[Rfam]
RNA sequence: CAAGCAUGAACACUGCUAUUUUCCGUUUCUUUUUUUACUUUAGCGCCUGAUUCAGGAAGGCUUUCGCGCGUAAGAGAAGAAACGAAAAGUAGCGCCUAAGCCUCCCUCGUGGAGGCUUUUUUGUA
Numbered sequence: 001c002a003a004g005c006a007u008g009a010a011c012a013c014u015g016c017u018a019u020u021u022u023c024c025g026u027u028u029c030u031u032u033u034u035u036u037a038c039u040u041u042a043g044c045g046c047c048u049g050a051u052u053c054a055g056g057a058a059g060g061c062u063u064u065c066g067c068g069c070g071u072a073a074g075a076g077a078a079g080a081a082a083c084g085a086a087a088a089g090u091a092g093c094g095c096c097u098a099a100g101c102c103u104c105c106c107u108c109g110u111g112g113a114g115g116c117u118u119u120u121u122u123g124u125a
Base pairs, nucleotide, nucleotide: 015093016092017091018090020088021087022086024084025083026082027081028080029079030078031077032076033075035073036072037071038070041054055067058064098118099117100116101115102114103113104112105111

Record summary:
The family of this 125-nucleotide sequence from Ewingella americana is "Phenylalanine leader peptide". It scores 73 bits against the family's covariance model. It is annotated as a cis-regulatory leader. Rfam 15.1 lists 379 matches to the family in 290 species.